[Rfam]
RNA sequence: CAAGAUAUAAAUUCAUUGCCAAAGACAGUAGGUAAUUAAGAGCGUAAGCCGCCUACCGAGGCGUGUAGAAGAUAUAGCCUUCUGCGGCCUCGAUUGUGGGGCCGCUUUUCUGAAAGGAGG
Numbered sequence: 001c002a003a004g005a006u007a008u009a010a011a012u013u014c015a016u017u018g019c020c021a022a023a024g025a026c027a028g029u030a031g032g033u034a035a036u037u038a039a040g041a042g043c044g045u046a047a048g049c050c051g052c053c054u055a056c057c058g059a060g061g062c063g064u065g066u067a068g069a070a071g072a073u074a075u076a077g078c079c080u081u082c083u084g085c086g087g088c089c090u091c092g093a094u095u096g097u098g099g100g101g102c103c104g105c106u107u108u109u110c111u112g113a114a115a116g117g118a119g120g
Base pairs, nucleotide, nucleotide: 028056029055030054031053032052033051036041084105085104086103087102088101089100090099091098092097
RNA: Ribosomal protein L10 leader
Organism: Mesotoga sp. TolDC